RNA sequence: GGGGGUUAACCUAGGCUAGGGAACUCGGCAAACUAGCCCCAUAACUUCGGGAUAAGGGGUGCCUGCGAUUCUUAGCUGAAACUAGGAAUCGCAGGUCGCAGUAACAAGGGGGACCUGACUGUUUAACAAAAACAUAGCUCCCCGCUAGCCCGAAAGGGUUUGUACGGGGGGUGAAUCCUGGCCACUGGUGGUAGGUGAAACCCGGGUUCAACCGGGCGAAGCCCCACUGAAGGCCGGGGGUAACCCUGACCCUCUUAAGGUAGCCAAAUGCCUUGUCGGGUAAGUUCCGACGCGCAUGAACGGAUCAACGAGGUCCCCGCUGUCCCGGCCUGGGGCCCCGCGAACACGCUGAGCGGGUGCAUAGUCCCGCAA
Numbered sequence: 001g002g003g004g005g006u007u008a009a010c011c012u013a014g015g016c017u018a019g020g021g022a023a024c025u026c027g028g029c030a031a032a033c034u035a036g037c038c039c040c041a042u043a044a045c046u047u048c049g050g051g052a053u054a055a056g057g058g059g060u061g062c063c064u065g066c067g068a069u070u071c072u073u074a075g076c077u078g079a080a081a082c083u084a085g086g087a088a089u090c091g092c093a094g095g096u097c098g099c100a101g102u103a104a105c106a107a108g109g110g111g112g113a114c115c116u117g118a119c120u121g122u123u124u125a126a127c128a129a130a131a132a133c134a135u136a137g138c139u140c141c142c143c144g145c146u147a148g149c150c151c152g153a154a155a156g157g158g159u160u161u162g163u164a165c166g167g168g169g170g171g172u173g174a175a176u177c178c179u180g181g182c183c184a185c186u187g188g189u190g191g192u193a194g195g196u197g198a199a200a201c202c203c204g205g206g207u208u209c210a211a212c213c214g215g216g217c218g219a220a221g222c223c224c225c226a227c228u229g230a231a232g233g234c235c236g237g238g239g240g241u242a243a244c245c246c247u248g249a250c251c252c253u254c255u256u257a258a259g260g261u262a263g264c265c266a267a268a269u270g271c272c273u274u275g276u277c278g279g280g281u282a283a284g285u286u287c288c289g290a291c292g293c294g295c296a297u298g299a300a301c302g303g304a305u306c307a308a309c310g311a312g313g314u315c316c317c318c319g320c321u322g323u324c325c326c327g328g329c330c331u332g333g334g335g336c337c338c339c340g341c342g343a344a345c346a347c348g349c350u351g352a353g354c355g356g357g358u359g360c361a362u363a364g365u366c367c368c369g370c371a372a
Base pairs, nucleotide, nucleotide: 001339002338003337004336010334011333012332013331014330015329016328017327019325020324021323036060037059038058039057040056045050061096062095063094064093065092066091067090068089069088070087071086072085073084074083075082097101109318110317111316112315113314114313115312116310117309120134121133122132137172138171139170140169141168142167143166144165145162148159149158150157151156175305176304177303178302180235181234182233185232186231187228188227189226190225191224194223195222196221201216202215203214204213205212236254237253238252239251240250241249255259275291276290277289278288279287280286353370354369355368356367357366

This 372-nucleotide part of an RNA from Caldisphaera lagunensis belongs to the Rfam family "Archaeal large subunit ribosomal RNA". NCBI's taxonomy places the organism under Archaea, Thermoproteati, Thermoprotei, Acidilobaceae, Caldisphaera lagunensis. Its family is annotated with ribosome and structural constituent of ribosome in the Gene Ontology. The literature on the family includes a 2001 paper in Science by Yusupov et al., "Crystal structure of the ribosome at 5.5 A resolution".